[Rfam]
RNA sequence: AAGCCACCCAAUGAAUCUGCAUGCCUCAAUGUGUUUCUGAGAAAUUUAGAGAAAGCUGGCAAUAUUAAAGUCAUCUUAUGAGCCUUAAAAACACUGAAGUCAUUAUGAUUCCUGAAAGGCUACAAGA
Numbered sequence: 001a002a003g004c005c006a007c008c009c010a011a012u013g014a015a016u017c018u019g020c021a022u023g024c025c026u027c028a029a030u031g032u033g034u035u036u037c038u039g040a041g042a043a044a045u046u047u048a049g050a051g052a053a054a055g056c057u058g059g060c061a062a063u064a065u066u067a068a069a070g071u072c073a074u075c076u077u078a079u080g081a082g083c084c085u086u087a088a089a090a091a092c093a094c095u096g097a098a099g100u101c102a103u104u105a106u107g108a109u110u111c112c113u114g115a116a117a118g119g120c121u122a123c124a125a126g127a
Stems, first nucleotide, its partner, number of pairs: 003060004016042003020039001070120003082109001084107001086105003091100002
This 127-nucleotide RNA sequence from Pteropus alecto belongs to the Rfam family "Small nucleolar RNA SNORA33".
About the family: ACA33 is a member of the H/ACA class of snoRNA that guide the sites of modification of uridines to pseudouridines.
It is annotated as an H/ACA-box small nucleolar RNA.
NCBI's taxonomy places the organism under Eukaryota, Euteleostomi, Yinpterochiroptera, Pteropodoidea, Pteropus.